[Rfam]
RNA sequence: AUAACGCAAAGGUAAACUUAUCGAAAGGUAAGGACACAAAGCCGUGGGUCUAACGUAACGUUUGUUACUAUGAUUGCCAGGUUGCCGAA
Dot-bracket structure: ...........((...((((((....))))))...))..((((.((((((....((((......))))...)))..)))))))......
Rfam assigns this 89-nucleotide sequence from Guptibacillus hwajinpoensis to the family "c-di-GMP-I riboswitch aptamer". The family's consensus secondary structure is taken from published work. The organism belongs to Guptibacillus, within Bacteria. A search with the family's covariance model found it, with a score of 81 bits.